[Rfam]
RNA sequence: UCAAACUUUUAGGGGUGUCUUUUACUAAUUUUUAGUGAAAUUCUGAGAAAUACUCUUCGAACCUGAGGCAGUUAAGGCUGACGUAGGGAAAAAGUUCACAGUCACU
Numbered sequence: 001u002c003a004a005a006c007u008u009u010u011a012g013g014g015g016u017g018u019c020u021u022u023u024a025c026u027a028a029u030u031u032u033u034a035g036u037g038a039a040a041u042u043c044u045g046a047g048a049a050a051u052a053c054u055c056u057u058c059g060a061a062c063c064u065g066a067g068g069c070a071g072u073u074a075a076g077g078c079u080g081a082c083g084u085a086g087g088g089a090a091a092a093a094g095u096u097c098a099c100a101g102u103c104a105c106u
Base pairs, nucleotide, nucleotide: 006094007093008092009091010090011056012055013054014053016050017043020040021039022038023037024036025035026034027033062087063086064085065084069080070079071078

This 106-nucleotide RNA sequence from Lishizhenia tianjinensis belongs to the Rfam family "TPP riboswitch aptamer (THI element)". From the family's description: Vitamin B(1) in its active form thiamin pyrophosphate (TPP) is an essential coenzyme that is synthesised by coupling of pyrimidine and thiazole moieties in bacteria. Taxonomically the source falls in Lishizhenia (Bacteria, Bacteroidota, Flavobacteriales, Crocinitomicaceae).